[Rfam]
RNA sequence: GGCCCGAAUCUGAAGUAGGAUAGAUUAGUAAGGUCAGCUGAUCCUACUAUUCUACUGUACUUCAAAAUUGGGCCG
Numbered sequence: 001g002g003c004c005c006g007a008a009u010c011u012g013a014a015g016u017a018g019g020a021u022a023g024a025u026u027a028g029u030a031a032g033g034u035c036a037g038c039u040g041a042u043c044c045u046a047c048u049a050u051u052c053u054a055c056u057g058u059a060c061u062u063c064a065a066a067a068u069u070g071g072g073c074c075g
Stems, first nucleotide, its partner, number of pairs: 001074007009066001011064007019056001021054003026049005032043004
RNA: mir-5928 microRNA precursor family
Organism: Haemonchus placei